[Rfam]
RNA sequence: UGAAGAAAUUCUUGAUAUCGUCUAUCGUCAAGAUAACGAUAGGUGCCGUCCGAUCGCCAACAGCCGACCUCAGGAAACGAUUAACGUCAACUUGCGCUCUUGAGUACAAUUUAAGGAUGUCCGUUUUUAUUGAUGCCCCGAGUUUGGAGUUAACUCUUCAUGAAAUUACCGAUUUAUCUUGAUUACUC
Numbered sequence: 001u002g003a004a005g006a007a008a009u010u011c012u013u014g015a016u017a018u019c020g021u022c023u024a025u026c027g028u029c030a031a032g033a034u035a036a037c038g039a040u041a042g043g044u045g046c047c048g049u050c051c052g053a054u055c056g057c058c059a060a061c062a063g064c065c066g067a068c069c070u071c072a073g074g075a076a077a078c079g080a081u082u083a084a085c086g087u088c089a090a091c092u093u094g095c096g097c098u099c100u101u102g103a104g105u106a107c108a109a110u111u112u113a114a115g116g117a118u119g120u121c122c123g124u125u126u127u128u129a130u131u132g133a134u135g136c137c138c139c140g141a142g143u144u145u146g147g148a149g150u151u152a153a154c155u156c157u158u159c160a161u162g163a164a165a166u167u168a169c170c171g172a173u174u175u176a177u178c179u180u181g182a183u184u185a186c187u188c
Stems, first nucleotide, its partner, number of pairs: 001129006014049001018045001020044003025039004051066002056064002068116003072112003081103003086097002131168004
Background: Shown here is a 188-nucleotide RNA sequence from Sodalis-like endosymbiont of Proechinophthirus fluctus, a member of the family "IscS-1 ICR thermometer". Pairs were carried over by alignment from the consensus structure. Rfam links the family to the GO terms response to temperature stimulus and regulation of translation.